A member of the RNA family "permuted transfer-messenger RNA" from Ahrensia sp. R2A130, 226 nucleotides long. The family's consensus secondary structure is taken from published work. NCBI's taxonomy places the organism under Bacteria, Pseudomonadati, Hyphomicrobiales, Ahrensiaceae, Ahrensia. A reference for the family is Laslett et al. (2002), "BRUCE: a program for the detection of transfer-messenger RNA genes in nucleotide sequences", Nucleic Acids Res. Rfam's curators write: Bacterial tmRNA, also known as 10Sa RNA or SsrA, is named for its dual tRNA and mRNA-like properties. Its role is to liberate the mRNA from a stalled ribosome. Its family is annotated with RNA catabolic process in the Gene Ontology.
[Rfam]
RNA sequence: GGCGAUAAAUGACCUGUGUAAUAAACCAUUCGGACCCGGGGGCGGUACCCGGCGCCUCCACCAGACGGCUUGUUUAAUAGCCAAUCGAAGCUGUCUGGCGGGGGCGAAAUAGGAUCGACGAGGGUGUAAAGACUGCGUUUUUGCUCGGCAUGGUACCCACCGAUAUCGGGCCAUUAUAGUAGUUGCAAAUGAUAACAACUAUGCAGAAGCACGGGUCGCAGCGUAA
Dot-bracket structure: (((((........(.((........((..(((...(((((.......)))))(((((((........................................)))))))............))).)).......)).).....)))))(((...........)))................................................................